[Rfam]
RNA: ZMP/ZTP riboswitch aptamer (pfl RNA motif)
Nucleotides: 138
Base pairs, nucleotide, nucleotide: 005097006096007095008094009093010092011091012090015087016086017126018125019124020123021122072083073082074081075080115133117131118130119129
Number, partner (000 for none) and nucleotide at each position: 001000a002000g003000c004000c005097c006096g007095g008094c009093g010092c011091g012090c013000g014000a015087c016086u017126g018125g019124c020123g021122a022000u023000a024000g025000g026000c027000g028000c029000g030000g031000c032000a033000c034000u035000c036000c037000a038000g039000c040000g041000a042000c043000g044000g045000c046000g047000u048000c049000g050000c051000c052000a053000c054000g055000g056000g057000g058000u059000g060000g061000c062000c063000g064000g065000c066000g067000c068000c069000g070000a071000c072083g073082u074081g075080g076000g077000u078000c079000a080075c081074c082073a083072c084000g085000g086016g087015g088000g089000a090012g091011c092010g093009u094008g095007c096006c097005g098000c099000c100000g101000g102000a103000g104000c105000a106000u107000c108000c109000g110000g111000c112000g113000u114000u115133c116000a117131g118130c119129c120000g121000u122021u123020c124019g125018c126017c127000u128000g129119g130118g131117c132000a133115g134000c135000c136000c137000u138000u